[Rfam]
RNA sequence: AUCUUAUCCAGAGCGGUGGAGGGAACUGGCCCGAUGAUACCCGGCAACCAUUUAUUCUUUUGACAAGAAUAGAAAGGUGCUAAUUCCUUCAGGUAGUAUAACCUGGCAGAUAAGAG
Numbered sequence: 001a002u003c004u005u006a007u008c009c010a011g012a013g014c015g016g017u018g019g020a021g022g023g024a025a026c027u028g029g030c031c032c033g034a035u036g037a038u039a040c041c042c043g044g045c046a047a048c049c050a051u052u053u054a055u056u057c058u059u060u061u062g063a064c065a066a067g068a069a070u071a072g073a074a075a076g077g078u079g080c081u082a083a084u085u086c087c088u089u090c091a092g093g094u095a096g097u098a099u100a101a102c103c104u105g106g107c108a109g110a111u112a113a114g115a116g
Base pairs, nucleotide, nucleotide: 002115003114004113005112006111007110008109013042015041016040017039021032022031023030028087029086043081044080045079046078048077049076051073052072053071054070055069056068057067058066085108090105091104092103093102094101
A member of the RNA family "SAM riboswitch aptamer (S box leader)" from Ammoniphilus sp. CFH 90114, 116 nucleotides long. A reference for the family is Grundy and Henkin (1998), "The S box regulon: a new global transcription termination control system for methionine and cysteine biosynthesis genes in gram-positive bacteria", Mol Microbiol.